[Rfam]
RNA sequence: CCAGGGGCUUACGCCCCUGGCUGAUGACGGGCGUGCCUUUGGCACU
Numbered sequence: 001c002c003a004g005g006g007g008c009u010u011a012c013g014c015c016c017c018u019g020g021c022u023g024a025u026g027a028c029g030g031g032c033g034u035g036c037c038u039u040u041g042g043c044a045c046u
Stems, first nucleotide, its partner, number of pairs: 001020008033045005
The record is a 46-nucleotide RNA sequence from Pedosphaera parvula, which matches "Acido-Lenti-1 RNA" in Rfam.
It is annotated as a small RNA.
Pairs were carried over by alignment from the consensus structure, which is taken from published work.